RNA sequence: GCGCAGAGCAUUUAGGGUUCCGCCCGGGGCGUCCCGGGGCCAGGUCCGAGAAAUGCAGCCGAGCCGGUCAAUCCCGGCGCGGUACACGGCGGGACAAAAUCCCGGGAGAA
Numbered sequence: 001g002c003g004c005a006g007a008g009c010a011u012u013u014a015g016g017g018u019u020c021c022g023c024c025c026g027g028g029g030c031g032u033c034c035c036g037g038g039g040c041c042a043g044g045u046c047c048g049a050g051a052a053a054u055g056c057a058g059c060c061g062a063g064c065c066g067g068u069c070a071a072u073c074c075c076g077g078c079g080c081g082g083u084a085c086a087c088g089g090c091g092g093g094a095c096a097a098a099a100u101c102c103c104g105g106g107a108g109a110a
Stems, first nucleotide, its partner, number of pairs: 008056005015047002020044002022041001023038006058083004063078005085105001087108001091103003

A member of the RNA family "Guanidine-I riboswitch aptamer" from Roseicyclus persicicus, 110 nucleotides long. Rfam links the family to the GO term regulation of gene expression. Taxonomically the source falls in Roseicyclus (Bacteria, Pseudomonadati, Pseudomonadota, Alphaproteobacteria). This family represents a conserved RNA structure found upstream of the ykkC and yxkD genes in Bacillus subtilis and related genes in other bacteria. The function of this family is unclear although it has been suggested that it may function to switch on efflux pumps and detoxification systems in response to harmful environmental molecules.